[Rfam]
Nucleotides: 084
Base pairs, nucleotide, nucleotide: 010080011079012078013077014076016074017073018072019071020070021069022068023067025065028062029061030060031059032058033057
Number, partner (000 for none) and nucleotide at each position: 001000u002000u003000u004000a005000a006000a007000c008000c009000u010080c011079g012078a013077g014076a015000c016074u017073a018072g019071u020070u021069u022068u023067c024000u025065c026000a027000g028062u029061g030060a031059u032058c033057u034000g035000c036000c037000a038000g039000a040000u041000a042000u043000u044000a045000u046000u047000u048000g049000a050000a051000u052000u053000u054000c055000u056000g057033a058032g059031a060030u061029c062028a063000u064000u065025g066000u067023g068022a069021a070020a071019g072018c073017u074016g075000a076014u077013u078012u079011u080010g081000u082000g083000g084000a